This 135-nucleotide RNA sequence from Vibrio sp. 99-8-1 belongs to the Rfam family "Gammaprotebacteria rimP leader".
NCBI's taxonomy places the organism under Bacteria, Pseudomonadati, Pseudomonadota, Vibrionaceae, Vibrio.
A reference for the family is Naville and Gautheret (2010), "Premature terminator analysis sheds light on a hidden world of bacterial transcriptional attenuation", Genome Biol.
By type it is a cis-regulatory leader.
The family's consensus secondary structure is taken from published work.
[Rfam]
RNA sequence: AAAGCUACUUGGUGUAUCAGGGUCCAGCAAUAAAAAACCCCGACUAUCGGGGUUUUUUAUUAUCUAAUUUUCUGUUUUUGCAGUUUAUUAGGUAUUUUUGCUUGGAAUUUAGAUUGGGCUCUGAGCCCUUUUUUU
Number, nucleotide and partner (000 for none) at each position: 001a000002a000003a000004g000005c000006u000007a000008c000009u000010u000011g000012g000013u000014g000015u000016a000017u000018c000019a000020g000021g000022g000023u000024c000025c000026a000027g000028c000029a000030a000031u000032a000033a000034a056035a055036a054037a053038c052039c051040c050041c049042g048043a000044c000045u000046a000047u000048c042049g041050g040051g039052g038053u037054u036055u035056u034057u000058u000059a000060u000061u000062a000063u000064c000065u000066a000067a000068u000069u000070u000071u000072c000073u000074g000075u000076u000077u000078u000079u000080g000081c000082a000083g000084u000085u000086u000087a000088u000089u000090a000091g000092g000093u000094a000095u000096u000097u000098u000099u000100g000101c000102u000103u000104g000105g000106a000107a000108u000109u000110u000111a000112g000113a000114u000115u000116g128117g127118g126119c125120u000121c000122u000123g000124a000125g119126c118127c117128c116129u000130u000131u000132u000133u000134u000135u000